Rfam assigns this 172-nucleotide RNA from Imtechella halotolerans to the family "Group II catalytic intron D1-D4-3".
A search with the family's covariance model found it, with a score of 138 bits.
A reference for the family is Lehmann and Schmidt (2003), "Group II introns: structure and catalytic versatility of large natural ribozymes", Crit Rev Biochem Mol Biol.
Its family is annotated with Group II intron splicing in the Gene Ontology.
Lineage of the source: Bacteria > Bacteroidota > Flavobacteriales > Imtechella > Imtechella halotolerans.
The family has 406 seed sequences and 4,274 matches in Rfam 15.1.
RNA sequence: UCCAUUGCGAAGUGGAAUCUGAAGGAAGCUGGCGGCAAAACUCUGCCCCGAGGAACACGAACAACAUUAGGCAUAACCGAUGGGAUGAGGCUGCCAUACAAGUCAAAAUCCAAAGAUUACACGGACAUCGGGAUGUAGAUGUUGCGGGGACAUGGAGUGAAAGUGAGUUAUC
Numbered sequence: 001u002c003c004a005u006u007g008c009g010a011a012g013u014g015g016a017a018u019c020u021g022a023a024g025g026a027a028g029c030u031g032g033c034g035g036c037a038a039a040a041c042u043c044u045g046c047c048c049c050g051a052g053g054a055a056c057a058c059g060a061a062c063a064a065c066a067u068u069a070g071g072c073a074u075a076a077c078c079g080a081u082g083g084g085a086u087g088a089g090g091c092u093g094c095c096a097u098a099c100a101a102g103u104c105a106a107a108a109u110c111c112a113a114a115g116a117u118u119a120c121a122c123g124g125a126c127a128u129c130g131g132g133a134u135g136u137a138g139a140u141g142u143u144g145c146g147g148g149g150a151c152a153u154g155g156a157g158u159g160a161a162a163g164u165g166a167g168u169u170a171u172c
Base pairs, nucleotide, nucleotide: 001016002015003014004013005012006011028172030170031169032168035164036163040158041157042156043155044154045153046149047148048147049146050145062144063143064142065141066140071136072135073134077131078130079129080128081127082126083111084110085109086108089104090103091102092101